Rfam assigns this 130-nucleotide sequence from Arachis hypogaea to the family "Small nucleolar RNA snoR74".

RNA sequence: GAAAAAGCAGCGGCCUAUUGCCUCUGUGAACAGGCCUCUCGUUACCUUUAGGGAUAUAUGAAUCCAAAGUUAUUGGGUGAACCUCUGUUCUUUCUUUAUGACUCCAGGUUCAGUAAACCGUGGGACAUUU
Number, nucleotide and partner (000 for none) at each position: 001g000002a000003a000004a000005a048006a047007g046008c000009a000010g000011c000012g036013g000014c034015c033016u032017a000018u000019u000020g000021c000022c000023u000024c000025u000026g000027u000028g000029a000030a000031c000032a016033g015034g014035c000036c012037u000038c000039u000040c000041g000042u000043u000044a000045c000046c007047u006048u005049u000050a000051g000052g000053g000054a000055u000056a000057u000058a000059u000060g000061a000062a000063u000064c123065c122066a121067a000068a000069g118070u117071u116072a000073u000074u000075g000076g000077g000078u112079g111080a110081a109082c108083c107084u106085c000086u000087g000088u000089u000090c000091u000092u000093u000094c000095u000096u000097u000098a000099u000100g000101a000102c000103u000104c000105c000106a084107g083108g082109u081110u080111c079112a078113g000114u000115a000116a071117a070118c069119c000120g000121u066122g065123g064124g000125a000126c000127a000128u000129u000130u000
The family's RNA type in Rfam is H/ACA-box small nucleolar RNA. The literature on the family includes a 2002 paper in Curr Biol by Marker et al., "Experimental RNomics: identification of 140 candidates for small non-messenger RNAs in the plant Arabidopsis thaliana". Gene Ontology terms of the family: nucleolus and RNA processing.